Rfam assigns this 89-nucleotide RNA sequence from Actinomyces massiliensis to the family "ZMP/ZTP riboswitch aptamer (pfl RNA motif)".
The source organism's lineage runs through Bacteria, Actinomycetota, Actinomycetaceae, Actinomyces and Actinomyces massiliensis.
The base pairs follow the family's consensus structure, which is taken from published work.
[Rfam]
RNA sequence: GGGUUCGGCCGCGACUGGCGAGGGUGGGGCACCACCGGGGAGCGGUCACCGAUCAUGAGUAGGGGACGUCGCCCGCCUGGGCGUCCCCG
Numbered sequence: 001g002g003g004u005u006c007g008g009c010c011g012c013g014a015c016u017g018g019c020g021a022g023g024g025u026g027g028g029g030c031a032c033c034a035c036c037g038g039g040g041a042g043c044g045g046u047c048a049c050c051g052a053u054c055a056u057g058a059g060u061a062g063g064g065g066a067c068g069u070c071g072c073c074c075g076c077c078u079g080g081g082c083g084u085c086c087c088c089g
Stems, first nucleotide, its partner, number of pairs: 003050001005048001007047006015039002017077004024035004066084005